The record is a 58-nucleotide RNA sequence from Microbacterium sp. ZXX196, which matches "msiK RNA" in Rfam. The base pairs follow the family's consensus structure, which is taken from published work.
RNA sequence: GCCCCGCUUCCAUUCACAACGGAUCGUCCGGCACGUACCUGCCGGUGAAGGAGAAACA
Numbered sequence: 001g002c003c004c005c006g007c008u009u010c011c012a013u014u015c016a017c018a019a020c021g022g023a024u025c026g027u028c029c030g031g032c033a034c035g036u037a038c039c040u041g042c043c044g045g046u047g048a049a050g051g052a053g054a055a056a057c058a
Base pairs, nucleotide, nucleotide: 010051011050013049014048015047016046028045029044030043031042032041033040

Notes:
It is annotated as a cis-regulatory element. Taxonomically the source falls in Microbacterium (Bacteria, Actinomycetota, Micrococcales, Microbacteriaceae).